[Rfam]
Rfam assigns this 82-nucleotide sequence from Ceratodon purpureus to the family "Small nucleolar RNA snoR8a".
The organism belongs to Ceratodon, within Eukaryota.
The match comes from Rfam's covariance-model search (71 bits).
The family's consensus secondary structure was predicted with WAR.
On this family, see Brown et al., RNA 2001: "Multiple snoRNA gene clusters from Arabidopsis".
Rfam links the family to the GO terms nucleolus and RNA processing.
By type it is a C/D-box small nucleolar RNA.

RNA sequence: GAUGUGCUGUGAUUAUAUAAAAUUCCUCGUACUGAGUGCCGUAGGCGUGACAGACUACUUACACCCAUAGAAUAUGAGCACA
Numbered sequence: 001g002a003u004g005u006g007c008u009g010u011g012a013u014u015a016u017a018u019a020a021a022a023u024u025c026c027u028c029g030u031a032c033u034g035a036g037u038g039c040c041g042u043a044g045g046c047g048u049g050a051c052a053g054a055c056u057a058c059u060u061a062c063a064c065c066c067a068u069a070g071a072a073u074a075u076g077a078g079c080a081c082a
Base pairs, nucleotide, nucleotide: 003082004081005080006079